RNase MRP: a 268-nucleotide RNA sequence from Scleropages formosus. NCBI's taxonomy places the organism under Eukaryota, Metazoa, Osteoglossiformes, Osteoglossidae, Scleropages. Rfam 15.1 lists 3,510 matches to the family in 2,315 species. The family's consensus secondary structure is taken from published work. Rfam links the family to the GO terms ribonuclease MRP activity, ribonuclease MRP complex and rRNA processing.
RNA sequence: UAGCAUUCUGAAAACCUGCACACUAGGCUACGCGCGGAGAACUUGGUUUCUCAGUCUCAUGCCUAGGGGAAAGUCCCCGGACCGGCGGCAGAAAGUGCUCGGCUUGAACGCCCGUCUCUGGUUCGCGCGUCACCGCGGCCUUGACCAAGGCUAAGACGUUCGCUGUGGACUGAGCCUGGUGACUGCGAAUCGCUUUCGUCAUUGCCAUAGUAACGCAGGUGGUGCGCCCACGCGCACUCUACAGAACGGGGCUCAUUCCCAGAAUGCA
Dot-bracket structure: ..((((((((...((((((...((((((........(((((......)))))........)))))).....[[.[[[[........((((.....)))).....(..............)......(((....(((((.(.......((((......((((.....))))...))))...).)))))...))).....................)))))).((((((....))))))..........]]]]]]......)))))))).
Numbered sequence: 001u002a003g004c005a006u007u008c009u010g011a012a013a014a015c016c017u018g019c020a021c022a023c024u025a026g027g028c029u030a031c032g033c034g035c036g037g038a039g040a041a042c043u044u045g046g047u048u049u050c051u052c053a054g055u056c057u058c059a060u061g062c063c064u065a066g067g068g069g070a071a072a073g074u075c076c077c078c079g080g081a082c083c084g085g086c087g088g089c090a091g092a093a094a095g096u097g098c099u100c101g102g103c104u105u106g107a108a109c110g111c112c113c114g115u116c117u118c119u120g121g122u123u124c125g126c127g128c129g130u131c132a133c134c135g136c137g138g139c140c141u142u143g144a145c146c147a148a149g150g151c152u153a154a155g156a157c158g159u160u161c162g163c164u165g166u167g168g169a170c171u172g173a174g175c176c177u178g179g180u181g182a183c184u185g186c187g188a189a190u191c192g193c194u195u196u197c198g199u200c201a202u203u204g205c206c207a208u209a210g211u212a213a214c215g216c217a218g219g220u221g222g223u224g225c226g227c228c229c230a231c232g233c234g235c236a237c238u239c240u241a242c243a244g245a246a247c248g249g250g251g252c253u254c255a256u257u258c259c260c261a262g263a264a265u266g267c268a
Stems, first nucleotide, its partner, number of pairs: 003267008014220006023066006037052005072253002075251004087099004105120001127193003134187005140181001148177004158170004222237006